RNA sequence: CCGUGCUAGGUGGGGAGGUAGCGGUUCCCUGUACUCGAAAUCCGCUUUAUGCGAGACUUAAUUCCUUUGCUAAGGGUGCGUUUUUGUGAAGUCUGCCCAAAGCACGUAGUGUCUGAAGAUCUCGGUCCUAUGCAAUAUGAACCCAUGAAUCAUGUCAGGUCCUGACGGAAGCAGCAUUAAGUGGAUCAUCGUAUGUGCCGUAGGGUUGCCGAGAUUUAGCUGUCGACUUUGGUAACGUUUGUGAUACGCAUUCGAAGCGAAGGUGCACGG
Numbered sequence: 001c002c003g004u005g006c007u008a009g010g011u012g013g014g015g016a017g018g019u020a021g022c023g024g025u026u027c028c029c030u031g032u033a034c035u036c037g038a039a040a041u042c043c044g045c046u047u048u049a050u051g052c053g054a055g056a057c058u059u060a061a062u063u064c065c066u067u068u069g070c071u072a073a074g075g076g077u078g079c080g081u082u083u084u085u086g087u088g089a090a091g092u093c094u095g096c097c098c099a100a101a102g103c104a105c106g107u108a109g110u111g112u113c114u115g116a117a118g119a120u121c122u123c124g125g126u127c128c129u130a131u132g133c134a135a136u137a138u139g140a141a142c143c144c145a146u147g148a149a150u151c152a153u154g155u156c157a158g159g160u161c162c163u164g165a166c167g168g169a170a171g172c173a174g175c176a177u178u179a180a181g182u183g184g185a186u187c188a189u190c191g192u193a194u195g196u197g198c199c200g201u202a203g204g205g206u207u208g209c210c211g212a213g214a215u216u217u218a219g220c221u222g223u224c225g226a227c228u229u230u231g232g233u234a235a236c237g238u239u240u241g242u243g244a245u246a247c248g249c250a251u252u253c254g255a256a257g258c259g260a261a262g263g264u265g266c267a268c269g270g
Base pairs, nucleotide, nucleotide: 001270002269003268004267005266006265008059009058010057011056012030013029014028015027016026017025019023034055035054036053037052039050064263065262066261067260068259069258070257074253075252076251077250078249082246084244085243086242087241088240089239090238094234095233098231099230100229101228102227106224108221109220110219118216119215120214121213122212123211124210125209126208127204128203129202130201131200132199133195134194136193137192138191139190140189141186143184144183145182146181152177153176154175155174160169161168162167
RNA: Bacterial large signal recognition particle RNA